[Rfam]
RNA sequence: CCUUUGGAGUGUGACACCAAACGUUAGUAGAAUGCUGAUUUUUCAACGAAUUUUCAGCUUCGAGAACGCACACGAGGAAAAAGGAA
Numbered sequence: 001c002c003u004u005u006g007g008a009g010u011g012u013g014a015c016a017c018c019a020a021a022c023g024u025u026a027g028u029a030g031a032a033u034g035c036u037g038a039u040u041u042u043u044c045a046a047c048g049a050a051u052u053u054u055c056a057g058c059u060u061c062g063a064g065a066a067c068g069c070a071c072a073c074g075a076g077g078a079a080a081a082a083g084g085a086a
Stems, first nucleotide, its partner, number of pairs: 001084005009073005022068003030061003033056002